[Rfam]
RNA: U5 spliceosomal RNA
Organism: Pristionchus pacificus
Nucleotides: 120
Base pairs, nucleotide, nucleotide: 003082004081005080006079009071010070011069012068013067014066015065016064017063018062019061031057032056033055034054035053036052037051038050099120101119102118103117104116106114
Number, partner (000 for none) and nucleotide at each position: 001000c002000a003082a004081c005080u006079c007000u008000g009071g010070a011069u012068c013067c014066u015065c016064u017063g018062c019061a020000g021000u022000u023000g024000c025000u026000c027000g028000a029000g030000a031057a032056a033055a034054u035053c036052u037051u038050u039000c040000g041000c042000c043000u044000u045000u046000u047000a048000c049000u050038a051037a052036a053035g054034a055033u056032u057031u058000c059000c060000g061019u062018g063017c064016a065015g066014a067013g068012g069011a070010u071009c072000a073000a074000a075000c076000u077000a078000u079006g080005a081004g082003u083000a084000a085000u086000a087000c088000u089000c090000a091000u092000u093000u094000u095000u096000u097000g098000g099120a100000a101119u102118c103117c104116c105000c106114u107000c108000g109000a110000a111000a112000g113000a114106g115000c116104g117103g118102g119101a120099u